[Rfam]
The record is a 156-nucleotide RNA sequence from Phyllostomus discolor, which matches "Small Cajal body specific RNA 1" in Rfam. Lineage of the source: Eukaryota > Tetrapoda > Amniota > Theria > Phyllostomus. Rfam's curators write: scaRNAs are a specific class of small nuclear RNAs which localise to the Cajal bodies and guide the modification of RNA polymerase II transcribed spliceosomal RNAs U1, U2, U4, U5 and U12. ACA35 belong to the H/ACA box class of guide RNAs as it has the predicted hairpin-hinge-hairpin-tail structure, conserved H/ACA-box motifs and is found associated with GAR1. It is predicted to guide pseudouridylation of the U2 spliceosomal snRNA at residue U89.
RNA sequence: AAACACUUGAUACUAACUGAACUAUCUACAUCCUAGCCUUGUGUCAAAGGCUUGUGAUAGCUGGGUUUAAGAACUGCAAUAUUGAAACAAAAGCCAUGAGUCUUUUAAGCUCAGUGUAUAAAGACACACUCUGAGUUAUAACUCAGUGGCAUAACU
Number, nucleotide and partner (000 for none) at each position: 001a000002a000003a000004c076005a075006c000007u073008u072009g000010a000011u000012a000013c000014u000015a067016a066017c065018u064019g000020a062021a000022c060023u059024a058025u057026c056027u000028a000029c000030a000031u000032c000033c054034u000035a052036g051037c050038c049039u048040u047041g000042u000043g000044u000045c000046a000047a040048a039049g038050g037051c036052u035053u000054g033055u000056g026057a025058u024059a023060g022061c000062u020063g000064g018065g017066u016067u015068u000069a000070a000071g000072a008073a007074c000075u005076g004077c000078a000079a000080u000081a000082u000083u000084g000085a000086a000087a000088c000089a000090a000091a000092a000093g150094c149095c148096a000097u000098g000099a000100g000101u000102c000103u000104u000105u000106u000107a000108a000109g000110c000111u000112c000113a000114g129115u128116g127117u126118a000119u124120a000121a000122a000123g000124a119125c000126a117127c116128a115129c114130u000131c146132u145133g144134a143135g142136u141137u000138a000139u000140a000141a136142c135143u134144c133145a132146g131147u000148g095149g094150c093151a000152u000153a000154a000155c000156u000